Pistol ribozyme: a 65-nucleotide RNA sequence from Anaerotignum lactatifermentans. The source organism's lineage runs through Bacteria, Bacillati, Clostridia, Anaerotignaceae and Anaerotignum lactatifermentans. The family's consensus secondary structure is taken from published work. The literature on the family includes a 2020 paper in Angew Chem Int Ed Engl by Teplova et al., "Crucial Roles of Two Hydrated Mg(2+) Ions in Reaction Catalysis of the Pistol Ribozyme".
RNA sequence: ACUCGUCUGAGCGAGUAUAAACAGUAAUUAAGCUCAGAGCGUCUCGGAGUGAUCCGGGGGUUUAG
Numbered sequence: 001a002c003u004c005g006u007c008u009g010a011g012c013g014a015g016u017a018u019a020a021a022c023a024g025u026a027a028u029u030a031a032g033c034u035c036a037g038a039g040c041g042u043c044u045c046g047g048a049g050u051g052a053u054c055c056g057g058g059g060g061u062u063u064a065g
Base pairs, nucleotide, nucleotide: 001016002015003014004013006038007037008036009035010034011033025064026063027062032040042059043058044057045056046055047054048053